[Rfam]
The record is a 214-nucleotide sequence from Paenibacillus sp. GP183, which matches "c-di-AMP riboswitch aptamer (ydaO/yuaA leader)" in Rfam.
RNA sequence: UAUUCACAAUCGCUUAAUUCCCGAAAGGGAAGCGGGGGAACCAGGGAUAAACGGCUGCGAUGUCUAAGCGACGCGCGCGUUUAUUUGAAAAAACCAUUCAGGAACUAUGGUUUUAGGGGUGAAUCCAUGUACGACAAGCGUAAGUCUUGCGUACGGGUAGGGAAUCUCAAUUCCGAAUCCGACAGCUAACCUCGUAAGCGAAUUGAGAGAAAAC
Numbered sequence: 001u002a003u004u005c006a007c008a009a010u011c012g013c014u015u016a017a018u019u020c021c022c023g024a025a026a027g028g029g030a031a032g033c034g035g036g037g038g039a040a041c042c043a044g045g046g047a048u049a050a051a052c053g054g055c056u057g058c059g060a061u062g063u064c065u066a067a068g069c070g071a072c073g074c075g076c077g078c079g080u081u082u083a084u085u086u087g088a089a090a091a092a093a094c095c096a097u098u099c100a101g102g103a104a105c106u107a108u109g110g111u112u113u114u115a116g117g118g119g120u121g122a123a124u125c126c127a128u129g130u131a132c133g134a135c136a137a138g139c140g141u142a143a144g145u146c147u148u149g150c151g152u153a154c155g156g157g158u159a160g161g162g163a164a165u166c167u168c169a170a171u172u173c174c175g176a177a178u179c180c181g182a183c184a185g186c187u188a189a190c191c192u193c194g195u196a197a198g199c200g201a202a203u204u205g206a207g208a209g210a211a212a213a214c
Base pairs, nucleotide, nucleotide: 011200012199013198014197018031019030020029032195033194034193035192036191037190042116117180118179119178125157126156160174161173162172163171
This family represents a conserved RNA structure found upstream of the ydaO and yuaA genes in Bacillus subtilis and related genes in other bacteria.